A member of the RNA family "ZMP/ZTP riboswitch aptamer (pfl RNA motif)" from Georgenia soli, 89 nucleotides long. Taxonomically the source falls in Georgenia (Bacteria, Bacillati, Actinomycetota, Actinomycetes). For this family Rfam cites "Recognition of the bacterial alarmone ZMP through long-distance association of two RNA subdomains" (Jones and Ferre-D'Amare, Nat Struct Mol Biol, 2015). Gene Ontology terms of the family: regulation of purine nucleotide biosynthetic process and one-carbon metabolic process.
RNA sequence: GGCCCCGGCCGUGACUGGCGAAGGUGGAGCACACCACCGGGGAGCGGCCGGAAGUUCCCGUCGGGGCACCGCACGCCUGGGUGCCUGGG
Numbered sequence: 001g002g003c004c005c006c007g008g009c010c011g012u013g014a015c016u017g018g019c020g021a022a023g024g025u026g027g028a029g030c031a032c033a034c035c036a037c038c039g040g041g042g043a044g045c046g047g048c049c050g051g052a053a054g055u056u057c058c059c060g061u062c063g064g065g066g067c068a069c070c071g072c073a074c075g076c077c078u079g080g081g082u083g084c085c086u087g088g089g
Stems, first nucleotide, its partner, number of pairs: 005051008015041002017077004024037004066084005